[Rfam]
RNA sequence: UUGGAAGAAGCCGAAAAUCCAACAAAGAGUAGGCA
Numbered sequence: 001u002u003g004g005a006a007g008a009a010g011c012c013g014a015a016a017a018u019c020c021a022a023c024a025a026a027g028a029g030u031a032g033g034c035a
Stems, first nucleotide, its partner, number of pairs: 002021004010034003
The family of this 35-nucleotide RNA is "DUF805b RNA". The base pairs follow the family's consensus structure, which is taken from published work. Rfam's curators put it in the seed alignment.